[Rfam]
RNA sequence: GUGCCUUAAACUAAUGAGUAAGGAAAAUAUUGGGCCGUGGUGACGCUCGGCUAUGCUUUUCUAAAGCGACCGAAUUUUUUCCGAGGUAUAGGUCGUCCUCUUGAGUCGUGCGCCUACUUUGCACGCGAUUCGGGUGAAGCGAUCUGCCUC
Numbered sequence: 001g002u003g004c005c006u007u008a009a010a011c012u013a014a015u016g017a018g019u020a021a022g023g024a025a026a027a028u029a030u031u032g033g034g035c036c037g038u039g040g041u042g043a044c045g046c047u048c049g050g051c052u053a054u055g056c057u058u059u060u061c062u063a064a065a066g067c068g069a070c071c072g073a074a075u076u077u078u079u080u081c082c083g084a085g086g087u088a089u090a091g092g093u094c095g096u097c098c099u100c101u102u103g104a105g106u107c108g109u110g111c112g113c114c115u116a117c118u119u120u121g122c123a124c125g126c127g128a129u130u131c132g133g134g135u136g137a138a139g140c141g142a143u144c145u146g147c148c149u150c
Base pairs, nucleotide, nucleotide: 004023005022006021007020008019033052034051035050036049037048039046054068055067056066057065058064083150084149085148086147087146090145091144092143093142094141095140096139099134100133103131104130105129106128107127109125110124112122113121

A member of the RNA family "U12 minor spliceosomal RNA" from Eumeta japonica, 150 nucleotides long. The match comes from Rfam's covariance-model search (113 bits). Lineage of the source: Eukaryota > Dicondylia > Glossata > Heteroneura > Eumeta. The pairing is the family consensus, mapped onto this sequence.